[Rfam]
The family of this 58-nucleotide RNA sequence from Buttiauxella agrestis is "Enterobacterial sRNA STnc450". It scores 38 bits against the family's covariance model. The source organism's lineage runs through Bacteria, Pseudomonadota, Enterobacterales, Buttiauxella and Buttiauxella agrestis.
RNA sequence: CGCUAUACUACCCGUUGAAAUUGCUGGCCCAACCUCCACGGACUGGCAGUCAAAACGU
Numbered sequence: 001c002g003c004u005a006u007a008c009u010a011c012c013c014g015u016u017g018a019a020a021u022u023g024c025u026g027g028c029c030c031a032a033c034c035u036c037c038a039c040g041g042a043c044u045g046g047c048a049g050u051c052a053a054a055a056c057g058u
Stems, first nucleotide, its partner, number of pairs: 002012001004010002016052003023047005029041002